[Rfam]
RNA sequence: GGGCCGGUGGUCUAGGGGUAUGAUACCUCGCUCACACCGAGGUGAUCAGGAGUUCGAAUCUCCUCCGGCCCA
Dot-bracket structure: (((((((..(((.........))).(((((.......))))).....(((((.......)))))))))))).
Shown here is a 72-nucleotide sequence from Methanobacterium lacus, a member of the family "tRNA". It is annotated as a transfer RNA. Rfam's curators write: Transfer RNA (tRNA) molecules are approximately 80 nucleotides in length.